Annotation: MIR7486 microRNA precursor family: an 87-nucleotide sequence from Gossypium lobatum.

[Rfam]
RNA sequence: CACGUCAGCGCGCUUUGAUGAUGUGGCAACAAAUCGCGUCCUAGAGGGAGCAAUUUGUUGCCACGUCAGCAAAGCGCGUUGAAGUGG
Numbered sequence: 001c002a003c004g005u006c007a008g009c010g011c012g013c014u015u016u017g018a019u020g021a022u023g024u025g026g027c028a029a030c031a032a033a034u035c036g037c038g039u040c041c042u043a044g045a046g047g048g049a050g051c052a053a054u055u056u057g058u059u060g061c062c063a064c065g066u067c068a069g070c071a072a073a074g075c076g077c078g079u080u081g082a083a084g085u086g087g
Base pairs, nucleotide, nucleotide: 001086002085003084005082006081007080008079009078010077011076012075013074014073015072016071017070019068020067021066023064024063025062026061027060028059029058030057031056032055033054034053036051037050040047041046
Pairs were carried over by alignment from the consensus structure, which was predicted with RNAalifold.
Rfam links the family to the GO terms miRNA-mediated post-transcriptional gene silencing and RISC complex.